RNA sequence: AAGUGCUUACAACUCUUUCAAUUUGUCCAGCAGGUCUUCUGGGUUUACCGGAGACCAAA
Number, nucleotide and partner (000 for none) at each position: 001a000002a000003g000004u000005g000006c000007u000008u000009a000010c000011a000012a000013c000014u000015c000016u000017u000018u000019c000020a000021a000022u000023u000024u000025g000026u000027c000028c000029a000030g000031c000032a000033g056034g055035u054036c053037u052038u051039c050040u000041g049042g048043g000044u000045u000046u000047a000048c042049c041050g039051g038052a037053g036054a035055c034056c033057a000058a000059a000